Rfam assigns this 76-nucleotide RNA sequence from Reinekea marinisedimentorum to the family "Retron msr RNA". The family's RNA type in Rfam is non-coding RNA gene. A search with the family's covariance model found it, with a score of 65 bits. Rfam describes the family as follows. Retron elements are found in a wide range of mainly Gram-negative bacteria. The retron encodes a reverse transcriptase that is responsible for the production of a small satellite DNA called msDNA (multi-copy single-stranded DNA). msDNA has both DNA (encoded by the retron msd gene) and RNA (encoded by the msr gene) components. The 5' end of msDNA is linked to an internal guanosine residue of the RNA strand by a 2'-5' linkage. The components of msDNA are poorly conserved in sequence between different organisms -- this family therefore represents only a subset of known msr genes.
RNA sequence: ACUCUUUAGUGUUAUUGGACCUACAGUACUUUCGGUCUAGUCGGGCGUUUAGCCAGACUCAAACUUAUUGAUUAAG
Numbered sequence: 001a002c003u004c005u006u007u008a009g010u011g012u013u014a015u016u017g018g019a020c021c022u023a024c025a026g027u028a029c030u031u032u033c034g035g036u037c038u039a040g041u042c043g044g045g046c047g048u049u050u051a052g053c054c055a056g057a058c059u060c061a062a063a064c065u066u067a068u069u070g071a072u073u074a075a076g
Base pairs, nucleotide, nucleotide: 003075006071007070008069009068039059040058041057042056044054045053046052